[Rfam]
RNA sequence: UUGCGGGCUUUGUCCAAUGAAAUACUUAUCGGACAUAAAGAUUCCAGAUAAGUGUUCAUUGGAUGAAGGCAGCUA
Numbered sequence: 001u002u003g004c005g006g007g008c009u010u011u012g013u014c015c016a017a018u019g020a021a022a023u024a025c026u027u028a029u030c031g032g033a034c035a036u037a038a039a040g041a042u043u044c045c046a047g048a049u050a051a052g053u054g055u056u057c058a059u060u061g062g063a064u065g066a067a068g069g070c071a072g073c074u075a
Stems, first nucleotide, its partner, number of pairs: 003073002006070001008068014023054008032044002
Rfam assigns this 75-nucleotide sequence from Nicotiana sylvestris to the family "MIR6146 microRNA precursor family". The match comes from Rfam's covariance-model search (68 bits). The organism belongs to Nicotiana, within Eukaryota. Rfam links the family to the GO terms RISC complex and miRNA-mediated post-transcriptional gene silencing.